A member of the RNA family "Small nucleolar RNA J33" from Ziziphus jujuba, 80 nucleotides long. It is annotated as a C/D-box small nucleolar RNA. Rfam 15.1 lists 831 matches to the family in 223 species. The organism belongs to Ziziphus jujuba, within Eukaryota. The literature on the family includes a 2003 paper in Nucleic Acids Res by Chen et al., "The high diversity of snoRNAs in plants: identification and comparative study of 120 snoRNA genes from Oryza sativa". The match comes from Rfam's covariance-model search (85 bits).
RNA sequence: CCGUGAGGGGAAUGAUGUAUUACUACCGGGCACUUAAAAUGUUGGCUUUUCUGGAUUCUGCAUCAGAGAUGGACAUUCGG
Numbered sequence: 001c002c003g004u005g006a007g008g009g010g011a012a013u014g015a016u017g018u019a020u021u022a023c024u025a026c027c028g029g030g031c032a033c034u035u036a037a038a039a040u041g042u043u044g045g046c047u048u049u050u051c052u053g054g055a056u057u058c059u060g061c062a063u064c065a066g067a068g069a070u071g072g073a074c075a076u077u078c079g080g
Stems, first nucleotide, its partner, number of pairs: 001080003005077002